[Rfam]
RNA sequence: CGAUGAGGUAGAGGUUGCGGCUUUUAUUAGUAAUCCGGACGAGACGCAGAGAACGUCAAUAACUCCGAAUGAAAGGAAAAGCUGCCGAAGUUUAUACUUCUUCUCUGGAAGUAUUUGCUGGGGCUGUUUUCGAAUAGGAACAGAACUGUCACGUUUACAAAGUUACCGUGUAAACGUGGGGCGCUAUCUUAACG
Number, nucleotide and partner (000 for none) at each position: 001c000002g000003a000004u000005g000006a189007g188008g187009u186010a185011g184012a000013g000014g000015u000016u000017g085018c084019g083020g082021c081022u080023u079024u078025u077026a000027u000028u000029a000030g000031u000032a000033a070034u069035c000036c067037g066038g065039a064040c000041g000042a000043g000044a000045c000046g000047c000048a000049g000050a000051g000052a000053a000054c000055g000056u000057c000058a000059a000060u000061a000062a000063c000064u039065c038066c037067g036068a000069a034070u033071g000072a000073a000074a000075g000076g000077a025078a024079a023080a022081g021082c020083u019084g018085c017086c000087g000088a000089a119090g118091u117092u000093u000094a114095u113096a112097c111098u110099u109100c108101u000102u000103c000104u000105c000106u000107g000108g100109a099110a098111g097112u096113a095114u094115u000116u000117g091118c090119u089120g147121g146122g000123g000124c143125u142126g141127u140128u139129u138130u137131c000132g000133a000134a000135u000136a000137g130138g129139a128140a127141c126142a125143g124144a000145a000146c121147u120148g000149u179150c178151a177152c176153g175154u174155u173156u172157a171158c170159a169160a000161a000162g000163u000164u000165a000166c000167c000168g000169u159170g158171u157172a156173a155174a154175c153176g152177u151178g150179g149180g000181g000182c000183g000184c011185u010186a009187u008188c007189u006190u000191a000192a000193c000194g000
RNA: Lysine riboswitch aptamer